[Rfam]
sok antitoxin (CssrC): a 152-nucleotide RNA from Erwinia sp. Leaf53. The family's RNA type in Rfam is antitoxin RNA. Pairs were carried over by alignment from the consensus structure, which is taken from published work. From the family's description: Also identified in Shigella as CssrC. For this family Rfam cites "An antisense RNA controls synthesis of an SOS-induced toxin evolved from an antitoxin" (Kawano et al., Mol Microbiol, 2007). Taxonomically the source falls in Erwinia (Bacteria, Pseudomonadota, Gammaproteobacteria, Erwiniaceae).
RNA sequence: GGGUGCUCAGGAUCUUUUGGUUCUGAGUAUUACCAGGGCCGAAAGAGAAAGAGCCCCACCGGAAUAGUCAUUAACCACUGGUGAGGCCACUCUCAUGCCCAACAACAUGAAGGUAGCCUUUUACCUGCCGCGAGGCAACGGCUGGCGGCACG
Numbered sequence: 001g002g003g004u005g006c007u008c009a010g011g012a013u014c015u016u017u018u019g020g021u022u023c024u025g026a027g028u029a030u031u032a033c034c035a036g037g038g039c040c041g042a043a044a045g046a047g048a049a050a051g052a053g054c055c056c057c058a059c060c061g062g063a064a065u066a067g068u069c070a071u072u073a074a075c076c077a078c079u080g081g082u083g084a085g086g087c088c089a090c091u092c093u094c095a096u097g098c099c100c101a102a103c104a105a106c107a108u109g110a111a112g113g114u115a116g117c118c119u120u121u122u123a124c125c126u127g128c129c130g131c132g133a134g135g136c137a138a139c140g141g142c143u144g145g146c147g148g149c150a151c152g
Stems, first nucleotide, its partner, number of pairs: 001057003005054004013046010024036001027033002058082003061078001062076001065073003083120005089114003093110005124148002128144001